[Rfam]
RNA sequence: UUCGGUCCUCGGUAGUGGCCCCCGGAGUCAUCCUCCGUGAGCCCCGAUCGAAGACCGCC
Numbered sequence: 001u002u003c004g005g006u007c008c009u010c011g012g013u014a015g016u017g018g019c020c021c022c023c024g025g026a027g028u029c030a031u032c033c034u035c036c037g038u039g040a041g042c043c044c045c046g047a048u049c050g051a052a053g054a055c056c057g058c059c
Stems, first nucleotide, its partner, number of pairs: 003057005009051005017043003021039001023037005

Rfam assigns this 59-nucleotide RNA sequence from Jonesia denitrificans to the family "Actino-pnp RNA". It scores 55 bits against the family's covariance model.